[Rfam]
RNA sequence: CCCGCCGCGGGACGGAAAGACCCCGUGCACCUUUACUGCAGCCUGGCAUUGACGCCGGCCAGGGCGUGUGCAGGAUAGGCGGGAGGCUGUGAAGCCGGGGCGCCAGCUCCGGUGGAGCCGCCCUUGAGAUACCGCCCUCGCUCUGGCUGGCGCCUAACCCACGGCCGUUAUCCGGUCGGGGGACAGUGUCAGGUGGGUGGUUUGACUGGGGCGGUCGCCUCCUAAAGAGUAACGGAGGCUCCCAAAGGUCCCCUCAGCACGGUCGGUAAUCGUGCGUAGAGUGCAAGGGCAUAAGGGGGCUUGACUGCGAGACUCACAAGUCGAGCAGGGGCGAAAGCCGGGCCUAGUGAUCCGGCGGUUCCGAAUGGAAGGGCCGUCGCUCAAAGGAUAAAAGGUACGCCGGGGAUAACAGGCUGAUCGGGGCCAAGAGUUCACAUCGACGCCCCGGUUUGGCACCUCGAUGUCGGCUCAUCGCAUCCUGGGGCUGGAGAAGGUCCCAAGGGUUGGGCUGUUCGCCCAUUAAAGCGGUACGUGAGCUGGGUUCAGAACGUCGUGAGACAGUUCGGUCCCUAUCUGCGGCGGGCGCA
Numbered sequence: 001c002c003c004g005c006c007g008c009g010g011g012a013c014g015g016a017a018a019g020a021c022c023c024c025g026u027g028c029a030c031c032u033u034u035a036c037u038g039c040a041g042c043c044u045g046g047c048a049u050u051g052a053c054g055c056c057g058g059c060c061a062g063g064g065c066g067u068g069u070g071c072a073g074g075a076u077a078g079g080c081g082g083g084a085g086g087c088u089g090u091g092a093a094g095c096c097g098g099g100g101c102g103c104c105a106g107c108u109c110c111g112g113u114g115g116a117g118c119c120g121c122c123c124u125u126g127a128g129a130u131a132c133c134g135c136c137c138u139c140g141c142u143c144u145g146g147c148u149g150g151c152g153c154c155u156a157a158c159c160c161a162c163g164g165c166c167g168u169u170a171u172c173c174g175g176u177c178g179g180g181g182g183a184c185a186g187u188g189u190c191a192g193g194u195g196g197g198u199g200g201u202u203u204g205a206c207u208g209g210g211g212c213g214g215u216c217g218c219c220u221c222c223u224a225a226a227g228a229g230u231a232a233c234g235g236a237g238g239c240u241c242c243c244a245a246a247g248g249u250c251c252c253c254u255c256a257g258c259a260c261g262g263u264c265g266g267u268a269a270u271c272g273u274g275c276g277u278a279g280a281g282u283g284c285a286a287g288g289g290c291a292u293a294a295g296g297g298g299g300c301u302u303g304a305c306u307g308c309g310a311g312a313c314u315c316a317c318a319a320g321u322c323g324a325g326c327a328g329g330g331g332c333g334a335a336a337g338c339c340g341g342g343c344c345u346a347g348u349g350a351u352c353c354g355g356c357g358g359u360u361c362c363g364a365a366u367g368g369a370a371g372g373g374c375c376g377u378c379g380c381u382c383a384a385a386g387g388a389u390a391a392a393a394g395g396u397a398c399g400c401c402g403g404g405g406a407u408a409a410c411a412g413g414c415u416g417a418u419c420g421g422g423g424c425c426a427a428g429a430g431u432u433c434a435c436a437u438c439g440a441c442g443c444c445c446c447g448g449u450u451u452g453g454c455a456c457c458u459c460g461a462u463g464u465c466g467g468c469u470c471a472u473c474g475c476a477u478c479c480u481g482g483g484g485c486u487g488g489a490g491a492a493g494g495u496c497c498c499a500a501g502g503g504u505u506g507g508g509c510u511g512u513u514c515g516c517c518c519a520u521u522a523a524a525g526c527g528g529u530a531c532g533u534g535a536g537c538u539g540g541g542u543u544c545a546g547a548a549c550g551u552c553g554u555g556a557g558a559c560a561g562u563u564c565g566g567u568c569c570c571u572a573u574c575u576g577c578g579g580c581g582g583g584c585g586c587a
Stems, first nucleotide, its partner, number of pairs: 001583008010575003014570002022404004027400002029396005035201004042193007051154001053152014068137001078136005085119003094113008158181003162178006204216004217239006240385001242342002248300006254280002257275006281290002305328004311322003330339003353379007361372002413454003417451001418448007428438002465540001466538004470532001471529005478503002481498006505519005546564004550559003
Shown here is a 587-nucleotide part of an RNA from Rhodothermus marinus, a member of the family "Bacterial large subunit ribosomal RNA". Its family is annotated with ribosome and structural constituent of ribosome in the Gene Ontology.